[Rfam]
RNA sequence: GGAUGUGAGGGCGAUCUGGUUGCGACAUCUGUCACCCCAUUGAUCGCCAGGGUUGAUUCGGCUGAUCUGGCUGGCUAGGCGGGUGCCCCCUUCCUCCCUCACCGCUCCAUGUGCGUCCCUCCCGAAGCUGCGCGCUCAGUCGAAGAGGACGACCAUCCCCAAUAGAGGAGGACUGGUCUUCGGUCAAGGGUAUACGAGUAGCUGCGCUCCCCUGCUAGAACCUCCAAACAAGCUCUCAAGGUCCAUUUGUAGGGGAACGUAGGGUAGUCAAGCUUCCAAGAAUAAAUAAAUAAAUAAAUAAAUAAAUAAAGGGAACAACCUUCCCUCACUCCUAUUGUGUUACUGUUUAUUU
Numbered sequence: 001g002g003a004u005g006u007g008a009g010g011g012c013g014a015u016c017u018g019g020u021u022g023c024g025a026c027a028u029c030u031g032u033c034a035c036c037c038c039a040u041u042g043a044u045c046g047c048c049a050g051g052g053u054u055g056a057u058u059c060g061g062c063u064g065a066u067c068u069g070g071c072u073g074g075c076u077a078g079g080c081g082g083g084u085g086c087c088c089c090c091u092u093c094c095u096c097c098c099u100c101a102c103c104g105c106u107c108c109a110u111g112u113g114c115g116u117c118c119c120u121c122c123c124g125a126a127g128c129u130g131c132g133c134g135c136u137c138a139g140u141c142g143a144a145g146a147g148g149a150c151g152a153c154c155a156u157c158c159c160c161a162a163u164a165g166a167g168g169a170g171g172a173c174u175g176g177u178c179u180u181c182g183g184u185c186a187a188g189g190g191u192a193u194a195c196g197a198g199u200a201g202c203u204g205c206g207c208u209c210c211c212c213u214g215c216u217a218g219a220a221c222c223u224c225c226a227a228a229c230a231a232g233c234u235c236u237c238a239a240g241g242u243c244c245a246u247u248u249g250u251a252g253g254g255g256a257a258c259g260u261a262g263g264g265u266a267g268u269c270a271a272g273c274u275u276c277c278a279a280g281a282a283u284a285a286a287u288a289a290a291u292a293a294a295u296a297a298a299u300a301a302a303u304a305a306a307u308a309a310a311g312g313g314a315a316c317a318a319c320c321u322u323c324c325c326u327c328a329c330u331c332c333u334a335u336u337g338u339g340u341u342a343c344u345g346u347u348u349a350u351u352u
Stems, first nucleotide, its partner, number of pairs: 001108003005102007013093002018090002024087001026085008035074002037070003042067004046062003116171002118168004122139001124137002127135002140162001142160001147158003201273003207267002210264006222255004228250005296352008
The family of this 352-nucleotide RNA from Cervus hanglu is "7SK RNA". Rfam's curators write: 7SK was discovered as an abundant small nuclear RNA in the mid-70s but a possible function has only recently been suggested. Two independent studies have found that 7SK RNA binds the CDK9/cyclin T complex (known as elongation factor P-TEFb). Taxonomically the source falls in Cervus hanglu (Eukaryota, Amniota, Boreoeutheria, Cervidae). Pairs were carried over by alignment from the consensus structure, which is taken from published work. Its Rfam clan is "7SK clan". It scores 324 bits against the family's covariance model.